[Rfam]
RNA sequence: AUAGAUAAAGACUGAAGUCGUCUCAAAUCAUGAAGUUAUUCCCCAAUUCAAUCAAAAUAUUGUUUUCUCUCUCUCUCCAUAAAAACAAAUAGUAUUUUUGAUUUAGCUUUACUGAUGGUUACGACUAGAAUUUGUCUUUGUUUGGAUAUGAAACUGAUUUUAUCAGUGAAGCCUAGAGUAUUCUAGGCUUUU
Numbered sequence: 001a002u003a004g005a006u007a008a009a010g011a012c013u014g015a016a017g018u019c020g021u022c023u024c025a026a027a028u029c030a031u032g033a034a035g036u037u038a039u040u041c042c043c044c045a046a047u048u049c050a051a052u053c054a055a056a057a058u059a060u061u062g063u064u065u066u067c068u069c070u071c072u073c074u075c076u077c078c079a080u081a082a083a084a085a086c087a088a089a090u091a092g093u094a095u096u097u098u099u100g101a102u103u104u105a106g107c108u109u110u111a112c113u114g115a116u117g118g119u120u121a122c123g124a125c126u127a128g129a130a131u132u133u134g135u136c137u138u139u140g141u142u143u144g145g146a147u148a149u150g151a152a153a154c155u156g157a158u159u160u161u162a163u164c165a166g167u168g169a170a171g172c173c174u175a176g177a178g179u180a181u182u183c184u185a186g187g188c189u190u191u192u
Stems, first nucleotide, its partner, number of pairs: 002144011016126006024117002028114001031111008051102007058094008153167006169190009